[Rfam]
RNA sequence: GAUGGCAAGGGAUGAAUAUUUAUCUUAUCAUACACUUUGAUUAAACCAUGUAGAUUUAGAUAUUCGCUUAUUGAUAUUCUGAUGCCAUU
Number, nucleotide and partner (000 for none) at each position: 001g000002a000003u087004g086005g085006c084007a083008a000009g000010g000011g000012a000013u000014g000015a000016a000017u000018a000019u000020u000021u000022a000023u000024c000025u000026u000027a000028u000029c000030a000031u000032a000033c000034a000035c000036u000037u000038u000039g000040a000041u000042u000043a000044a000045a000046c000047c000048a000049u000050g000051u000052a000053g000054a000055u000056u000057u000058a000059g000060a000061u000062a000063u000064u000065c000066g000067c000068u000069u000070a000071u000072u000073g000074a000075u000076a000077u000078u000079c000080u000081g000082a000083u007084g006085c005086c004087a003088u000089u000
Small nucleolar RNA R16: an 89-nucleotide RNA sequence from Gossypium klotzschianum. The literature on the family includes a 2002 paper in Mol Cell Biol by Galardi et al., "Purified box C/D snoRNPs are able to reproduce site-specific 2'-O-methylation of target RNA in vitro". Rfam links the family to the GO terms RNA processing and nucleolus. Pairs were carried over by alignment from the consensus structure, which was predicted with PFOLD. By type it is a C/D-box small nucleolar RNA.